The family of this 68-nucleotide RNA from Mycobacterium sherrisii is "ASdes TB sRNA". The source organism's lineage runs through Bacteria, Actinomycetota, Actinomycetes, Mycobacteriales and Mycobacterium simiae complex. A search with the family's covariance model found it, with a score of 65 bits. Rfam classes the family as a small RNA.
RNA sequence: UUGGCGGUGGGGUCGACCUCGCGGGUGACCACCAGGUAUUCGCGCAGCGCGAUGGCGUGUAGGUGCUC
Numbered sequence: 001u002u003g004g005c006g007g008u009g010g011g012g013u014c015g016a017c018c019u020c021g022c023g024g025g026u027g028a029c030c031a032c033c034a035g036g037u038a039u040u041c042g043c044g045c046a047g048c049g050c051g052a053u054g055g056c057g058u059g060u061a062g063g064u065g066c067u068c
Stems, first nucleotide, its partner, number of pairs: 005062001008059002011030003016026003035056001037054002040052005